[Rfam]
RNA: Y RNA
RNA sequence: GGCUGGUCCAAGAGCAGUGGUAUUUACAACUAAUUGAUCACAACCAGUUAGACUCCUUUGUUCCUUUCUCCACUCUCACUGCUUCGCUUGACUAAUCUUAA
Numbered sequence: 001g002g003c004u005g006g007u008c009c010a011a012g013a014g015c016a017g018u019g020g021u022a023u024u025u026a027c028a029a030c031u032a033a034u035u036g037a038u039c040a041c042a043a044c045c046a047g048u049u050a051g052a053c054u055c056c057u058u059u060g061u062u063c064c065u066u067u068c069u070c071c072a073c074u075c076u077c078a079c080u081g082c083u084u085c086g087c088u089u090g091a092c093u094a095a096u097c098u099u100a101a
Base pairs, nucleotide, nucleotide: 001097002096004094005093006092007091008090010089011088014085016080017079018078019077020076029062032059033058